[Rfam]
RNA: mir-135 microRNA precursor family
RNA sequence: UCACGCCUGUGUCUUAUGGCUUUUUAUUCCUAUGUGACUGUCUGCAGAGCGUCAUGUAGGGUUCAAAGCCACUGGGUACGGGGUGA
Dot-bracket structure: .(((.((.((((((..(((((((..(.((((((((((..............)))))))))).).)))))))..)))))))).))).
Numbered sequence: 001u002c003a004c005g006c007c008u009g010u011g012u013c014u015u016a017u018g019g020c021u022u023u024u025u026a027u028u029c030c031u032a033u034g035u036g037a038c039u040g041u042c043u044g045c046a047g048a049g050c051g052u053c054a055u056g057u058a059g060g061g062u063u064c065a066a067a068g069c070c071a072c073u074g075g076g077u078a079c080g081g082g083g084u085g086a
Stems, first nucleotide, its partner, number of pairs: 002085003006081002009079006017071007026063001028061010